[Rfam]
RNA sequence: CUUGUAGAGUGUUAGACCAACCAUAGUAGCGAGCAACUGGCGAGGUGGGACACGUAGAAACAAGAA
Dot-bracket structure: (((((...(((((.......(((.....((.((...)).))....))))))))......)))))..
Numbered sequence: 001c002u003u004g005u006a007g008a009g010u011g012u013u014a015g016a017c018c019a020a021c022c023a024u025a026g027u028a029g030c031g032a033g034c035a036a037c038u039g040g041c042g043a044g045g046u047g048g049g050a051c052a053c054g055u056a057g058a059a060a061c062a063a064g065a066a
Stems, first nucleotide, its partner, number of pairs: 001064005009053005021048003029041002032038002

Source information
Shown here is a 66-nucleotide RNA sequence from Niallia nealsonii, a member of the family "RAGATH-18 RNA". The family's consensus secondary structure is taken from published work. Rfam describes the family as follows. Actinobacteria, Firmicutes, Fusobacteria, Thermotogae (1 example).